[Rfam]
RNA sequence: AAACAUGAGAUAAAAACACAGUUUCUGUUGGUAGUCAGAACCUAUAUUAACUUAAUAUAGCAGUAGCCUGCCCUCCUGGGGUUGUCCUUUCUUCAUAAGUUAUUU
Numbered sequence: 001a002a003a004c005a006u007g008a009g010a011u012a013a014a015a016a017c018a019c020a021g022u023u024u025c026u027g028u029u030g031g032u033a034g035u036c037a038g039a040a041c042c043u044a045u046a047u048u049a050a051c052u053u054a055a056u057a058u059a060g061c062a063g064u065a066g067c068c069u070g071c072c073c074u075c076c077u078g079g080g081g082u083u084g085u086c087c088u089u090u091c092u093u094c095a096u097a098a099g100u101u102a103u104u105u
Base pairs, nucleotide, nucleotide: 005096006095007094008092009091010090021041022040024039025038026037027036042060043059044058045057046056047055048054049053070082071081072080073079
Background
azaaromatic riboswitch aptamer (yjdF RNA): a 105-nucleotide RNA from Clostridium saccharobutylicum.